Overview: A member of the RNA family "mir-1260b microRNA precursor family" from Balaenoptera musculus, 108 nucleotides long. The source organism's lineage runs through Eukaryota, Bilateria, Boreoeutheria, Balaenopteridae and Balaenoptera.
[Rfam]
RNA sequence: GUGUCUGCUGCUCCCCGUCGAUCCCACCGCUGCCACCAUUAUUGUUACUGCUCAGCAGGUGCUGCUGGUGGUGAUGGUGAUAGUCCGGUGGGGGCGGUGGGGCCGCUU
Numbered sequence: 001g002u003g004u005c006u007g008c009u010g011c012u013c014c015c016c017g018u019c020g021a022u023c024c025c026a027c028c029g030c031u032g033c034c035a036c037c038a039u040u041a042u043u044g045u046u047a048c049u050g051c052u053c054a055g056c057a058g059g060u061g062c063u064g065c066u067g068g069u070g071g072u073g074a075u076g077g078u079g080a081u082a083g084u085c086c087g088g089u090g091g092g093g094g095c096g097g098u099g100g101g102g103c104c105g106c107u108u
Base pairs, nucleotide, nucleotide: 007106008105010103011102012101013100014099015097016096017095018094022093023092024091025090026089027088028087029084030083031082032081034079035078036077037076038075039074040073041072042071043070044069045068053067054066055065056064057063058062